[Rfam]
RNA sequence: AUAUCUAUAAUGCCGAAUCCUUGUAGGUACGGGGGAACCGAUAGAAAUAUAGGGGUGAAUCCAGAUUUUUUUGGAGGGGUUAUUCUCUAAUCUUCUCUUUUACCCUAACCCGACAGCUAACCUCGGAGGCUGAGAUGCCACAAUCC
Numbered sequence: 001a002u003a004u005c006u007a008u009a010a011u012g013c014c015g016a017a018u019c020c021u022u023g024u025a026g027g028u029a030c031g032g033g034g035g036a037a038c039c040g041a042u043a044g045a046a047a048u049a050u051a052g053g054g055g056u057g058a059a060u061c062c063a064g065a066u067u068u069u070u071u072u073g074g075a076g077g078g079g080u081u082a083u084u085c086u087c088u089a090a091u092c093u094u095c096u097c098u099u100u101u102a103c104c105c106u107a108a109c110c111c112g113a114c115a116g117c118u119a120a121c122c123u124c125g126g127a128g129g130c131u132g133a134g135a136u137g138c139c140a141c142a143a144u145c146c
Base pairs, nucleotide, nucleotide: 012130013129014128019027020026030125031124032123033122034121039052053111054110055109061074062073063072064071077105078104079103080102
This 146-nucleotide RNA from Propionispora sp. 2/2-37 belongs to the Rfam family "c-di-AMP riboswitch aptamer (ydaO/yuaA leader)". A search with the family's covariance model found it, with a score of 81 bits. The pairing is the family consensus, mapped onto this sequence.